The record is a 264-nucleotide sequence from Fictibacillus arsenicus, which matches "Bacterial large signal recognition particle RNA" in Rfam.
The organism belongs to Fictibacillus, within Bacteria.
The family is grouped with related families in Rfam's "SRP clan".
RNA sequence: UCGCGCUAGAUGGGGAGGUAGCGGUGCCCUGUACUCGCAAUCCGCUGUAGCGAGGUUGAAUUCCUCUCCUCGGUUAGUUCAACGUAUGGCCGACGGACGUAAGUGGUGUUGAUGUCCGGGUCCUGCGCAACGGAGACCCAUGAACCCUGUCAGGUCCGGAAGGAAGCAGCAGUAAGUGGAUCACUUCGUGUGCCGUGGGGCAACCUGGACUGAGCUAACUGCGUCUGUACGCAUAGGUUGACUAUUCCAAAGAGAGGUGCGCGG
Numbered sequence: 001u002c003g004c005g006c007u008a009g010a011u012g013g014g015g016a017g018g019u020a021g022c023g024g025u026g027c028c029c030u031g032u033a034c035u036c037g038c039a040a041u042c043c044g045c046u047g048u049a050g051c052g053a054g055g056u057u058g059a060a061u062u063c064c065u066c067u068c069c070u071c072g073g074u075u076a077g078u079u080c081a082a083c084g085u086a087u088g089g090c091c092g093a094c095g096g097a098c099g100u101a102a103g104u105g106g107u108g109u110u111g112a113u114g115u116c117c118g119g120g121u122c123c124u125g126c127g128c129a130a131c132g133g134a135g136a137c138c139c140a141u142g143a144a145c146c147c148u149g150u151c152a153g154g155u156c157c158g159g160a161a162g163g164a165a166g167c168a169g170c171a172g173u174a175a176g177u178g179g180a181u182c183a184c185u186u187c188g189u190g191u192g193c194c195g196u197g198g199g200g201c202a203a204c205c206u207g208g209a210c211u212g213a214g215c216u217a218a219c220u221g222c223g224u225c226u227g228u229a230c231g232c233a234u235a236g237g238u239u240g241a242c243u244a245u246u247c248c249a250a251a252g253a254g255a256g257g258u259g260c261g262c263g264g
Base pairs, nucleotide, nucleotide: 001264002263003262004261005260006259009057010056011055012030013029014028015027017025019023034054035053036052037051038050063257064256065255066254067253068252072247073246075244076243079241080240081239082238083237085235086234087233088232093228095226096225097224098223099222100221103219104218105216106215107214114210115209116208117207118206119205120204121203122199123198124197125196126195127194128190129189131188132187133186134185135184136181138179139178140177141176147172148171149170150169155164156163157162